[Rfam]
RNA sequence: CCCCCCACGCCUCUCAUGGAAGCGCACCUUGGGGGGU
Number, nucleotide and partner (000 for none) at each position: 001c036002c035003c034004c033005c032006c031007a000008c024009g023010c022011c000012u000013c000014u000015c000016a000017u000018g000019g000020a000021a000022g010023c009024g008025c000026a000027c000028c000029u000030u000031g006032g005033g004034g003035g002036g001037u000
Rfam assigns this 37-nucleotide sequence from Halomonas cerina to the family "abiF RNA". The base pairs follow the family's consensus structure, which is taken from published work. From the family's description: Actinobacteria, Bacteroidetes, Clostridia, Proteobacteria, one Clostridia phage.